Shown here is a 150-nucleotide RNA from Bacillus mesophilus, a member of the family "FMN riboswitch aptamer (RFN element)". Pairs were carried over by alignment from the consensus structure, which is taken from published work. The organism belongs to Bacillus, within Bacteria. The match comes from Rfam's covariance-model search (127 bits).
[Rfam]
RNA sequence: AUUAUCCUUCGGGGCAGGGUGAAAUUCCCUACCGGCGGUAAAGAAUCAUUUGAUUCAAAGCCCGUGAGCCUUUUAAAUAUUUUUUAUUAAAAGUGCUGAUUUGGUGAAAAUCCAAAGCCGACAGUAUAGUCUGGAUGGGAGAAGGAUGUA
Numbered sequence: 001a002u003u004a005u006c007c008u009u010c011g012g013g014g015c016a017g018g019g020u021g022a023a024a025u026u027c028c029c030u031a032c033c034g035g036c037g038g039u040a041a042a043g044a045a046u047c048a049u050u051u052g053a054u055u056c057a058a059a060g061c062c063c064g065u066g067a068g069c070c071u072u073u074u075a076a077a078u079a080u081u082u083u084u085u086a087u088u089a090a091a092a093g094u095g096c097u098g099a100u101u102u103g104g105u106g107a108a109a110a111u112c113c114a115a116a117g118c119c120g121a122c123a124g125u126a127u128a129g130u131c132u133g134g135a136u137g138g139g140a141g142a143a144g145g146a147u148g149u150a
Stems, first nucleotide, its partner, number of pairs: 003148008017029003031130002033120002035065004060118002068096002100116005122133003
Dot-bracket structure: ..((((((((......(((.......))).[[((((((.....................[[))))..((.........................))...(((((.......)))))]])).(((....]]))).......))))))))..